This 140-nucleotide sequence from Desulforamulus aquiferis belongs to the Rfam family "c-di-AMP riboswitch aptamer (ydaO/yuaA leader)". Gene Ontology terms of the family: cyclic-di-AMP binding and regulation of gene expression. A search with the family's covariance model found it, with a score of 105 bits. NCBI's taxonomy places the organism under Bacteria, Bacillota, Eubacteriales, Peptococcaceae, Desulforamulus.
RNA sequence: AAAAAUAUGUUGCUUAAUCCUGAUAACAGGAGCGGAGGAACCGACCUUUUGGGGUGAAUCCAGUACCAGGUACUGGUAGGGUUUUAUCCUUUCGACCCGAACCCGUCAGCUAACUUCGUAAGCGAUAAGAGAAAGGGAGG
Dot-bracket structure: ..........((((...(((........)))((((((....((......))(((.....((((.........))))..((((............))))...))).........)))))).))))................